[Rfam]
RNA sequence: UUCCUCAAGGAGCGUUGCAGCGCCGGCCCCACACACAGCCAGCGUCAGGCUUGAGGGCAGCAUCCGCAACGGCGCUCACCUCGC
Numbered sequence: 001u002u003c004c005u006c007a008a009g010g011a012g013c014g015u016u017g018c019a020g021c022g023c024c025g026g027c028c029c030c031a032c033a034c035a036c037a038g039c040c041a042g043c044g045u046c047a048g049g050c051u052u053g054a055g056g057g058c059a060g061c062a063u064c065c066g067c068a069a070c071g072g073c074g075c076u077c078a079c080c081u082c083g084c
Base pairs, nucleotide, nucleotide: 002057003056004055005054006053007052008051021044022043023042025040026039
SAH (S-adenosyl-L-homocysteine) riboswitch aptamer: an 84-nucleotide sequence from Ramlibacter aurantiacus. It scores 53 bits against the family's covariance model. The base pairs follow the family's consensus structure, which is taken from published work.